Rfam assigns this 72-nucleotide RNA from Thermosulfuriphilus ammonigenes to the family "Fluoride riboswitch aptamer (crcB RNA motif)".
The match comes from Rfam's covariance-model search (48 bits).
[Rfam]
RNA sequence: AAAAUAAAGGGCUAUGAGGUCAGCCCGAACCGCCUGAAGGACACCCUUCAGGCUGAUGACCUCUACCCAGAC
Numbered sequence: 001a002a003a004a005u006a007a008a009g010g011g012c013u014a015u016g017a018g019g020u021c022a023g024c025c026c027g028a029a030c031c032g033c034c035u036g037a038a039g040g041a042c043a044c045c046c047u048u049c050a051g052g053c054u055g056a057u058g059a060c061c062u063c064u065a066c067c068c069a070g071a072c
Base pairs, nucleotide, nucleotide: 010025011024012023013022016063017062018061019060020059021058032053033052034051035050036049037048038047039046040045